[Rfam]
The record is a 119-nucleotide RNA sequence from Pelusios castaneus, which matches "Small nucleolar RNA SNORA26" in Rfam.
RNA sequence: UUGCCCUCUUAAGGCAAACUGUGCUUUAAGUGGCCAACACAGAGGGGUAUAGUAAUUCUCUCUAAAACCCAGAAGAGAGAUUAAAACUCCCUUUCUGGAUCCUGUCGGGAGGCACAAAC
Numbered sequence: 001u002u003g004c005c006c007u008c009u010u011a012a013g014g015c016a017a018a019c020u021g022u023g024c025u026u027u028a029a030g031u032g033g034c035c036a037a038c039a040c041a042g043a044g045g046g047g048u049a050u051a052g053u054a055a056u057u058c059u060c061u062c063u064a065a066a067a068c069c070c071a072g073a074a075g076a077g078a079g080a081u082u083a084a085a086a087c088u089c090c091c092u093u094u095c096u097g098g099a100u101c102c103u104g105u106c107g108g109g110a111g112g113c114a115c116a117a118a119c
Base pairs, nucleotide, nucleotide: 002049003048004047005046006045007044009042010041014038019030058111059110060109061108062107069098070097071096072095073094074093075091077089078088079087081086
Annotation: The organism belongs to Pelusios, within Eukaryota. For this family Rfam cites "RNomics: an experimental approach that identifies 201 candidates for novel, small, non-messenger RNAs in mouse" (Huttenhofer et al., EMBO J, 2001). Rfam's curators write: The snoRNA HBI-6 belong to the H/ACA family of snoRNAs, guiding the pseudouridylation of position U4522 if the 28S rRNA. HBI-6 is the human orthologue of mouse MBI-6 snoRNA. Pairs were carried over by alignment from the consensus structure, which was predicted with RNAalifold. The match comes from Rfam's covariance-model search (98 bits).